[Rfam]
RNA sequence: GGCGUAAAGCGCAUGCAGGUGGAUGAUUAAGUCAGAUGUGAAAGCCCGGGGCUCAACCUCGGAAUAGCAUUUGAAACUGGUCAUCUAGAGUACUGUAGAGGGGGGUAGAAUUUCAGGUGUAGCGGUGAAAUGCGUAGAGAUCUGAAGGAAUACCGGUGGCGAAGGCGGCCCCCUGGACAGAUACUGACACUCAGAUGCGAAAGCGUGGGGAGCAAACAGGAUUAGAUACCCUGGUAGUCCACGCCGUAAACGAUGUCUACUUGGAGGUUGUGGCCUUGAGCCGUGGCUUUCGGAGCUAACGCGUUAAGUAGACCGCCUGGGGAGUACGGUCGCAAGAUUAAAACUCAAAUGAAU
Numbered sequence: 001g002g003c004g005u006a007a008a009g010c011g012c013a014u015g016c017a018g019g020u021g022g023a024u025g026a027u028u029a030a031g032u033c034a035g036a037u038g039u040g041a042a043a044g045c046c047c048g049g050g051g052c053u054c055a056a057c058c059u060c061g062g063a064a065u066a067g068c069a070u071u072u073g074a075a076a077c078u079g080g081u082c083a084u085c086u087a088g089a090g091u092a093c094u095g096u097a098g099a100g101g102g103g104g105g106u107a108g109a110a111u112u113u114c115a116g117g118u119g120u121a122g123c124g125g126u127g128a129a130a131u132g133c134g135u136a137g138a139g140a141u142c143u144g145a146a147g148g149a150a151u152a153c154c155g156g157u158g159g160c161g162a163a164g165g166c167g168g169c170c171c172c173c174u175g176g177a178c179a180g181a182u183a184c185u186g187a188c189a190c191u192c193a194g195a196u197g198c199g200a201a202a203g204c205g206u207g208g209g210g211a212g213c214a215a216a217c218a219g220g221a222u223u224a225g226a227u228a229c230c231c232u233g234g235u236a237g238u239c240c241a242c243g244c245c246g247u248a249a250a251c252g253a254u255g256u257c258u259a260c261u262u263g264g265a266g267g268u269u270g271u272g273g274c275c276u277u278g279a280g281c282c283g284u285g286g287c288u289u290u291c292g293g294a295g296c297u298a299a300c301g302c303g304u305u306a307a308g309u310a311g312a313c314c315g316c317c318u319g320g321g322g323a324g325u326a327c328g329g330u331c332g333c334a335a336g337a338u339u340a341a342a343a344c345u346c347a348a349a350u351g352a353a354u
Stems, first nucleotide, its partner, number of pairs: 001317003009314001011198004018191003022085007030078002032074008046062006089185003093180004100174007107151001111147008122133003159166002203244006212238002217233004255313006263291012295302002319346003328339004
RNA: Bacterial small subunit ribosomal RNA, nucleotides 577 to 930
Organism: Vibrio aquimaris